Lysine riboswitch aptamer: a 177-nucleotide RNA sequence from Lentihominibacter hominis. The match comes from Rfam's covariance-model search (64 bits). Pairs were carried over by alignment from the consensus structure, which is taken from published work. Lineage of the source: Bacteria > Bacillota > Clostridia > Anaerovoracaceae > Lentihominibacter.
[Rfam]
RNA sequence: AUAGUUGAUAGAGGUGCGGACCAGAUGAAGAGAUGAGUAGCCGGCAGGCAGUGACUUACUCGGAGGCGACUCCGCCGAACCGGUGUUUCAGGCGUGAGGUUCCGGUGGGCAUAUGGCUAAUAGCCAUAUGACUGUCUGCUUAGACGUUAUGGUCACGGCAGUUGUGCUAUCCUUAUA
Numbered sequence: 001a002u003a004g005u006u007g008a009u010a011g012a013g014g015u016g017c018g019g020a021c022c023a024g025a026u027g028a029a030g031a032g033a034u035g036a037g038u039a040g041c042c043g044g045c046a047g048g049c050a051g052u053g054a055c056u057u058a059c060u061c062g063g064a065g066g067c068g069a070c071u072c073c074g075c076c077g078a079a080c081c082g083g084u085g086u087u088u089c090a091g092g093c094g095u096g097a098g099g100u101u102c103c104g105g106u107g108g109g110c111a112u113a114u115g116g117c118u119a120a121u122a123g124c125c126a127u128a129u130g131a132c133u134g135u136c137u138g139c140u141u142a143g144a145c146g147u148u149a150u151g152g153u154c155a156c157g158g159c160a161g162u163u164g165u166g167c168u169a170u171c172c173u174u175a176u177a
Base pairs, nucleotide, nucleotide: 007171008170009169010168011167016075017074018073019072020071024067032060034058035057036056079106080105081104082103083102085100086099087098088097089096090095107133108132110130111129112128113127114126115125116124117123136161137160138159139158140157